Nucleotides: 099
Stems, first nucleotide, its partner, number of pairs: 010086002013083003018078002021075005027069004032065003036061008
Number, partner (000 for none) and nucleotide at each position: 001000g002000a003000c004000g005000g006000c007000u008000c009000g010086u011085g012000c013083g014082g015081c016000g017000a018078g019077a020000u021075c022074u023073g024072c025071g026000c027069c028068c029067g030066c031000a032065u033064g034063g035000u036061u037060c038059u039058g040057a041056c042055a043054u044000c045000a046000c047000u048000u049000c050000c051000c052000c053000g054043g055042u056041g057040u058039c059038a060037g061036a062000c063034c064033c065032a066030g067029c068028g069027g070000u071025c072024g073023c074022g075021g076000a077019u078018c079000u080000g081015g082014u083013c084000a085011c086010a087000c088000g089000a090000g091000c092000a093000g094000c095000a096000g097000c098000c099000g
This 99-nucleotide sequence from Aeromicrobium yanjiei belongs to the Rfam family "mraW RNA". The family's consensus secondary structure is taken from published work. A search with the family's covariance model found it, with a score of 53 bits.